[Rfam]
RNA sequence: AACGCUGUGGGCUCCGUGCCAGAUGCGCGUUUACACUGCAACAUCUUCAAGAAUUCUGUAAAUGCACUAUCUGGUACGACAGCCCACUGUGU
Numbered sequence: 001a002a003c004g005c006u007g008u009g010g011g012c013u014c015c016g017u018g019c020c021a022g023a024u025g026c027g028c029g030u031u032u033a034c035a036c037u038g039c040a041a042c043a044u045c046u047u048c049a050a051g052a053a054u055u056c057u058g059u060a061a062a063u064g065c066a067c068u069a070u071c072u073g074g075u076a077c078g079a080c081a082g083c084c085c086a087c088u089g090u091g092u
Base pairs, nucleotide, nucleotide: 008086009085010084011083015078016077017076018075019074020073021072022071023070025067027065028064029063030062031061032060033059034058035057
RNA: mir-277 microRNA precursor family